[Rfam]
RNA sequence: CCUAUAAAAGGUAAUGGCGUACUACCUUCCCCAACCGCUAUAGAAUAUAGCUGAUGACGCCUGGCUUACG
Numbered sequence: 001c002c003u004a005u006a007a008a009a010g011g012u013a014a015u016g017g018c019g020u021a022c023u024a025c026c027u028u029c030c031c032c033a034a035c036c037g038c039u040a041u042a043g044a045a046u047a048u049a050g051c052u053g054a055u056g057a058c059g060c061c062u063g064g065c066u067u068a069c070g
Base pairs, nucleotide, nucleotide: 010026011025012024013023016061017060018059019058020057037051038050039049040048
Rfam assigns this 70-nucleotide RNA from Prodigiosinella confusarubida to the family "Fluoride riboswitch aptamer (crcB RNA motif)". The literature on the family includes a 2012 paper in Science by Baker et al., "Widespread genetic switches and toxicity resistance proteins for fluoride". The base pairs follow the family's consensus structure, which is taken from published work. The organism belongs to Prodigiosinella, within Bacteria.